[Rfam]
RNA sequence: UCUUUCCUCAUCAGCCAAAUUCUGAAUACAAAAGCUAAACUCUCAAUCGCUUAUUUACAUCGAAACAGAUAUCAACAUGAUUCACAAUCCCACCCGUUUGAUUCACAAUCACACCUAGAAUACAAACAACUAAAAUUAUUUAUAAGGAUUCUUUCAAAGUUUUAAGAUAAAAAAUCUGCAAAUGCAUAUAUACUAUUUAAUCUAGAGAAGCCUCCUCCUGAAGUUUCUCGUAGUUGAUUGAUAAGUACGAGCGAGAAGACCCACACCGAUCCCAACACCAACCCUUACACCAAGUCCAAU
Numbered sequence: 001u002c003u004u005u006c007c008u009c010a011u012c013a014g015c016c017a018a019a020u021u022c023u024g025a026a027u028a029c030a031a032a033a034g035c036u037a038a039a040c041u042c043u044c045a046a047u048c049g050c051u052u053a054u055u056u057a058c059a060u061c062g063a064a065a066c067a068g069a070u071a072u073c074a075a076c077a078u079g080a081u082u083c084a085c086a087a088u089c090c091c092a093c094c095c096g097u098u099u100g101a102u103u104c105a106c107a108a109u110c111a112c113a114c115c116u117a118g119a120a121u122a123c124a125a126a127c128a129a130c131u132a133a134a135a136u137u138a139u140u141u142a143u144a145a146g147g148a149u150u151c152u153u154u155c156a157a158a159g160u161u162u163u164a165a166g167a168u169a170a171a172a173a174a175u176c177u178g179c180a181a182a183u184g185c186a187u188a189u190a191u192a193c194u195a196u197u198u199a200a201u202c203u204a205g206a207g208a209a210g211c212c213u214c215c216u217c218c219u220g221a222a223g224u225u226u227c228u229c230g231u232a233g234u235u236g237a238u239u240g241a242u243a244a245g246u247a248c249g250a251g252c253g254a255g256a257a258g259a260c261c262c263a264c265a266c267c268g269a270u271c272c273c274a275a276c277a278c279c280a281a282c283c284c285u286u287a288c289a290c291c292a293a294g295u296c297c298a299a300u
Stems, first nucleotide, its partner, number of pairs: 011221004023057006032041001092131001096127005101121003145216004151210004162206002165203002177186003223291001225289001226287001230282002233278002236271005245264002249261001252258001
RNA: TeloSII non coding RNA 33